This 86-nucleotide RNA from Metabacillus harenarius belongs to the Rfam family "c-di-GMP-I riboswitch aptamer". For this family Rfam cites "Identification of 22 candidate structured RNAs in bacteria using the CMfinder comparative genomics pipeline" (Weinberg et al., Nucleic Acids Res, 2007).
RNA sequence: UAGAGAAAAGGGCAAAUUCACUGAAAAGUGUUGACGCAAAACUAUAGGGGCUAAGUUCAAUUUGAAUAUGCCUGCCAGUUACCGGU
Numbered sequence: 001u002a003g004a005g006a007a008a009a010g011g012g013c014a015a016a017u018u019c020a021c022u023g024a025a026a027a028g029u030g031u032u033g034a035c036g037c038a039a040a041a042c043u044a045u046a047g048g049g050g051c052u053a054a055g056u057u058c059a060a061u062u063u064g065a066a067u068a069u070g071c072c073u074g075c076c077a078g079u080u081a082c083c084g085g086u
Base pairs, nucleotide, nucleotide: 012037013036019030020029021028022027040080041079042078043077047076048075049072050071051070056066057065058064059063